[Rfam]
RNA sequence: GAUGUCUCGUAAUCGCUGCACAGUGAUUUGUGUAGAGGAAAGUCCAUGCUCACACAUGCUGAGAUGCUUGUAGUGUUCGUGCUUGACGAAACCAUAAGUCAAGGUAACCUUCUUCGAAAAGGUUAACGGCAGGAAAAAUACCUGUGUCCUAAUGGGAUAUGGUAUGAAUACUUUGAAAGUGCCACAGUGACGAAGCUAAAUAGGAAACUAUUUAGGUGGAACGCGGUAAACCCCUCGAGUGAGCAACCCAAAUAUUGGUAGGGGCACCUUCUAUUAGGGAAAUCAACCGAAUGAAGGACAAGCAUUGUUUCGAUGCUUGUAGACAGAUGAUUACGCCUAUCCGUACGAGGCUGACCACCGCUAGAUAGUACGAUAGGACAGAACAUGGCUUACAGAC
Number, nucleotide and partner (000 for none) at each position: 001g000002a000003u000004g397005u396006c395007u000008c335009g334010u333011a332012a331013u330014c329015g000016c035017u034018g033019c032020a031021c030022a000023g000024u000025g000026a000027u000028u000029u000030g021031u020032g019033u018034a017035g016036a000037g000038g000039a000040a391041a390042g389043u000044c388045c387046a386047u385048g384049c243050u242051c241052a240053c239054a071055c070056a069057u000058g067059c066060u000061g000062a000063g000064a000065u000066g059067c058068u000069u056070g055071u054072a000073g000074u000075g000076u000077u238078c237079g236080u000081g234082c103083u102084u101085g100086a099087c098088g000089a000090a000091a000092c000093c000094a000095u000096a000097a000098g087099u086100c085101a084102a083103g082104g127105u125106a124107a123108c122109c121110u120111u000112c000113u000114u000115c000116g000117a000118a000119a000120a110121g109122g108123u107124u106125a105126a000127c104128g233129g232130c000131a173132g172133g171134a000135a000136a000137a000138a000139u164140a163141c162142c161143u000144g000145u000146g158147u157148c156149c000150u000151a000152a000153u000154g000155g000156g148157a147158u146159a000160u000161g142162g141163u140164a139165u000166g000167a000168a000169u000170a000171c133172u132173u131174u000175g000176a000177a000178a000179g231180u230181g227182c226183c225184a000185c000186a000187g000188u000189g000190a000191c000192g000193a000194a000195g000196c215197u214198a213199a212200a211201u210202a209203g208204g000205a000206a000207a000208c203209u202210a201211u200212u199213u198214a197215g196216g000217u000218g000219g000220a000221a000222c000223g000224c000225g183226g182227u181228a000229a000230a180231c179232c129233c128234c081235u000236c079237g078238a077239g053240u052241g051242a050243g049244c000245a000246a000247c263248c262249c261250a000251a000252a000253u000254a000255u000256u000257g000258g000259u000260a000261g249262g248263g247264g000265c000266a000267c297268c296269u295270u294271c293272u000273a000274u000275u000276a000277g000278g000279g000280a000281a000282a000283u000284c000285a000286a000287c000288c000289g000290a000291a000292u000293g271294a270295a269296g268297g267298a320299c319300a318301a317302g316303c315304a314305u313306u312307g311308u000309u000310u000311c307312g306313a305314u304315g303316c302317u301318u300319g299320u298321a000322g000323a000324c000325a000326g000327a000328u000329g014330a013331u012332u011333a010334c009335g008336c000337c376338u375339a374340u373341c372342c000343g371344u370345a369346c368347g000348a000349g000350g000351c000352u000353g000354a000355c000356c000357a000358c000359c000360g000361c000362u000363a000364g000365a000366u000367a000368g346369u345370a344371c343372g341373a340374u339375a338376g337377g000378a000379c000380a000381g000382a000383a000384c048385a047386u046387g045388g044389c042390u041391u040392a000393c000394a000395g006396a005397c004